[Rfam]
RNA: Bacterial large subunit ribosomal RNA, nucleotides 2687 to 2948
RNA sequence: GGAGAUUUGACGGAAUCUGUCCCUAGUACGAGAGGACCGGGAUGGACGAACCUCUGGUGUAUCAGUUGUUUCGCCAGAAGCAACGCUGAGUAGCUAUGUUCGGCAGGGAUAACCGCUGAAAGCAUAUAAGUGGGAAACCCUUCUGAAGAUAAGAUCUCCCUGGGAGCAAUCCCCUAAAGACCCCAAGAAGAUGACUUGGUUGAUAGGUCACAGAUGCAAGUGUGGUAACACAUUCAGUCGAGUGAUACUAAUCGGUCGUGAG
Dot-bracket structure: ((((((((..((((..(((((((...............))))))).(((((...(((....(((((((((((....))))))..)))))....))).)))))...(((....(((((...........)))))....))).))))......))))))))..(((.......))).(..(((((((((.......)))))....((((((((.((.....(((((....)))))....))..))))).)))...)))).)...